The family of this 56-nucleotide RNA sequence from Sphingomonas adhaesiva is "nhaA-I RNA".
Acidobacteria, Alphaproteobacteria, Betaproteobacteria and Gammaproteobacteria, Verrucomicrobia, cand. division NC10.
It is annotated as a riboswitch.
RNA sequence: GGGUGUUCGCGAGGAAGUCGCGCGGGCAGGUUCUCACGUUGGUCGGGCCGCCAACG
Dot-bracket structure: ....(((((((.........))))))).........(((((((......)))))))